[Rfam]
Shown here is a 61-nucleotide RNA from Galemys pyrenaicus, a member of the family "U7 small nuclear RNA". The base pairs follow the family's consensus structure, which was predicted with PFOLD. The organism belongs to Galemys, within Eukaryota. The match comes from Rfam's covariance-model search (39 bits). About the family: Animal histone pre-mRNAs are spliced by a different mechanism than nuclear pre-mRNAs and self-splicing introns. This processing involves the U7 snRNP, which contains only one RNA species: U7.
RNA sequence: GAGUGUUACAGGUCUUUUAGAAUUUCUCUAACUUGUUUUCUGUCCUCACUAGAAGACCCCC
Numbered sequence: 001g002a003g004u005g006u007u008a009c010a011g012g013u014c015u016u017u018u019a020g021a022a023u024u025u026c027u028c029u030a031a032c033u034u035g036u037u038u039u040c041u042g043u044c045c046u047c048a049c050u051a052g053a054a055g056a057c058c059c060c061c
Stems, first nucleotide, its partner, number of pairs: 035057007042049002